[Rfam]
RNA sequence: UUAGAUUUUCUUCAUUUUCUUUUGAAAUUUUUCUCGGAUUUUUGUUGUUGAAGGUUGAUAGAGAUGAUAUGAAGAUGAAAAAGAGAAUAAA
Numbered sequence: 001u002u003a004g005a006u007u008u009u010c011u012u013c014a015u016u017u018u019c020u021u022u023u024g025a026a027a028u029u030u031u032u033c034u035c036g037g038a039u040u041u042u043u044g045u046u047g048u049u050g051a052a053g054g055u056u057g058a059u060a061g062a063g064a065u066g067a068u069a070u071g072a073a074g075a076u077g078a079a080a081a082a083g084a085g086a087a088u089a090a091a
Stems, first nucleotide, its partner, number of pairs: 006084004011079009037056007
Description
A member of the RNA family "MIR5298 microRNA precursor family" from Medicago truncatula, 91 nucleotides long. NCBI's taxonomy places the organism under Eukaryota, Tracheophyta, eudicotyledons, rosids, Medicago.